About this RNA: Shown here is a 180-nucleotide RNA from Actinorhabdospora filicis, a member of the family "M-box riboswitch aptamer (ykoK leader)". A reference for the family is Barrick et al. (2004), "New RNA motifs suggest an expanded scope for riboswitches in bacterial genetic control", Proc Natl Acad Sci U S A. Lineage of the source: Bacteria > Bacillati > Actinomycetes > Micromonosporales > Actinorhabdospora. Rfam describes the family as follows. M-box riboswitch, also know as ykoK leader is described as a metaloregulatory RNA that sense divalent metals and function as a genetic control element of genes related to divalent metal transport in bacteria. It was first reported upstream of the B.subtilis ykoK gene and genes with related functions in other bacteria.
RNA sequence: GCGUUGCUUCGUUCGGUGAGGCUACUGCGUGGACACAGGCCACUGAUCCCAAACGUCGAGAGACGCCCCGGAUCAGGACAGGUCACCUCGGCUUAAGGGGUGAUCCCAAGUGGCUUCCGUCUCAUUCCGGGGACGGGUACGCCGCGCAGUGCCAAAGCUCUUACGAGACAGGGGCAUAAC
Numbered sequence: 001g002c003g004u005u006g007c008u009u010c011g012u013u014c015g016g017u018g019a020g021g022c023u024a025c026u027g028c029g030u031g032g033a034c035a036c037a038g039g040c041c042a043c044u045g046a047u048c049c050c051a052a053a054c055g056u057c058g059a060g061a062g063a064c065g066c067c068c069c070g071g072a073u074c075a076g077g078a079c080a081g082g083u084c085a086c087c088u089c090g091g092c093u094u095a096a097g098g099g100g101u102g103a104u105c106c107c108a109a110g111u112g113g114c115u116u117c118c119g120u121c122u123c124a125u126u127c128c129g130g131g132g133a134c135g136g137g138u139a140c141g142c143c144g145c146g147c148a149g150u151g152c153c154a155a156a157g158c159u160c161u162u163a164c165g166a167g168a169c170a171g172g173g174g175c176a177u178a179a180c
Stems, first nucleotide, its partner, number of pairs: 005176006011164002013096001015159003020153003025149008039114005045074005054065004081105004087099003116137007